The family of this 109-nucleotide sequence from Thermohalobacter berrensis is "TPP riboswitch aptamer (THI element)". The organism belongs to Thermohalobacter, within Bacteria.

RNA sequence: UAUUUCGAUUAGGGGAGCCUAUAGUGAUAGGCUGAGAAAGAGAUGUUAUCUCUGACCCUCAUAACCUGAUGUGGUUAGUACCACCGUAGGGAAAUCUGUAUUAGUGUAU
Numbered sequence: 001u002a003u004u005u006c007g008a009u010u011a012g013g014g015g016a017g018c019c020u021a022u023a024g025u026g027a028u029a030g031g032c033u034g035a036g037a038a039a040g041a042g043a044u045g046u047u048a049u050c051u052c053u054g055a056c057c058c059u060c061a062u063a064a065c066c067u068g069a070u071g072u073g074g075u076u077a078g079u080a081c082c083a084c085c086g087u088a089g090g091g092a093a094a095u096c097u098g099u100a101u102u103a104g105u106g107u108a109u
Stems, first nucleotide, its partner, number of pairs: 007096004011059004017032005039053005065090004071084004